[Rfam]
RNA sequence: UUUCGUUUAGGCAAUGGAGUUCACCAAAACUGCUGAACGCUAAUGACUCCUGCCGAAAA
Dot-bracket structure: .........[[....((((((..]]......((.....))....)))))).........
RNA: Fluoride riboswitch aptamer (crcB RNA motif)
Organism: Lederbergia galactosidilytica